[Rfam]
RNA: Flavo-1 RNA
RNA sequence: CCUAGCCCCGAUAGAAGCAGAAAUCCUUCCGCGCCGGGGUUCGGCGCAGAAGAUUGGAGCGGAUAGCGGGAUCAGCU
Numbered sequence: 001c002c003u004a005g006c007c008c009c010g011a012u013a014g015a016a017g018c019a020g021a022a023a024u025c026c027u028u029c030c031g032c033g034c035c036g037g038g039g040u041u042c043g044g045c046g047c048a049g050a051a052g053a054u055u056g057g058a059g060c061g062g063a064u065a066g067c068g069g070g071a072u073c074a075g076c077u
Stems, first nucleotide, its partner, number of pairs: 008069003012065002017060002022055004028050002031047005